[Rfam]
The record is a 139-nucleotide sequence from Crocuta crocuta, which matches "U4 spliceosomal RNA" in Rfam. The organism belongs to Crocuta, within Eukaryota. It is annotated as a spliceosomal small nuclear RNA. Rfam 15.1 lists 32,178 matches to the family in 2,547 species.
RNA sequence: AACUUUGCAUAGUGGCAAUAUCGUAGCCAACGAGGCUUAUCUGAGGCAUGAUUAUUACUAAAUGAAAGCUUUUCACAGAUCAAAGAUUUUUUUUUUCUAAUCCCAGUUUGGUAAGAACUUUUAUCAAGAAUGGAUGUUG
Numbered sequence: 001a002a003c004u005u006u007g008c009a010u011a012g013u014g015g016c017a018a019u020a021u022c023g024u025a026g027c028c029a030a031c032g033a034g035g036c037u038u039a040u041c042u043g044a045g046g047c048a049u050g051a052u053u054a055u056u057a058c059u060a061a062a063u064g065a066a067a068g069c070u071u072u073u074c075a076c077a078g079a080u081c082a083a084a085g086a087u088u089u090u091u092u093u094u095u096u097c098u099a100a101u102c103c104c105a106g107u108u109u110g111g112u113a114a115g116a117a118c119u120u121u122u123a124u125c126a127a128g129a130a131u132g133g134a135u136g137u138u139g
Stems, first nucleotide, its partner, number of pairs: 020052005026047003034042002090115002096111002099108003129138003